[Rfam]
Description:
This 115-nucleotide RNA from Medicago truncatula belongs to the Rfam family "MIR2593 microRNA precursor family".
RNA sequence: AUAUAAGAGAAAGUUCACUUUUUAGGUUCAUCCAAUAAAUGAUGUAUUUAGUCUAUAUUAGGGACUAGAUACAUCAUUUAUUGAAUGAACCUAAAAAGUGAAUUUUCUCUCAUAA
Number, nucleotide and partner (000 for none) at each position: 001a000002u114003a113004u112005a000006a110007g109008a000009g107010a106011a105012a104013g103014u000015u101016c100017a099018c098019u097020u096021u095022u094023u093024a092025g091026g000027u089028u088029c087030a086031u085032c000033c083034a082035a081036u080037a079038a078039a077040u076041g075042a074043u073044g072045u000046a000047u000048u000049u067050a066051g065052u064053c000054u000055a000056u000057a000058u000059u000060a000061g000062g000063g000064a052065c051066u050067a049068g000069a000070u000071a000072c044073a043074u042075c041076a040077u039078u038079u037080a036081u035082u034083g033084a000085a031086u030087g029088a028089a027090c000091c025092u024093a023094a022095a021096a020097a019098g018099u017100g016101a015102a000103u013104u012105u011106u010107c009108u000109c007110u006111c000112a004113u003114a002115a000